A member of the RNA family "Small nucleolar RNA SNORD75" from Ornithorhynchus anatinus, 68 nucleotides long. Its family is annotated with nucleolus and RNA processing in the Gene Ontology. NCBI's taxonomy places the organism under Eukaryota, Eumetazoa, Sarcopterygii, Ornithorhynchidae, Ornithorhynchus. Rfam classes the family as a C/D-box small nucleolar RNA. The match comes from Rfam's covariance-model search (59 bits). On this family, see Galardi et al., Mol Cell Biol 2002: "Purified box C/D snoRNPs are able to reproduce site-specific 2'-O-methylation of target RNA in vitro".
RNA sequence: AGCCUAUGAUGGUUUUAAGUAUAAGAGUAGUGGACAGAUGUGAUUUCUGACAACUGACUACUGAGGCU
Numbered sequence: 001a002g003c004c005u006a007u008g009a010u011g012g013u014u015u016u017a018a019g020u021a022u023a024a025g026a027g028u029a030g031u032g033g034a035c036a037g038a039u040g041u042g043a044u045u046u047c048u049g050a051c052a053a054c055u056g057a058c059u060a061c062u063g064a065g066g067c068u
Stems, first nucleotide, its partner, number of pairs: 001068004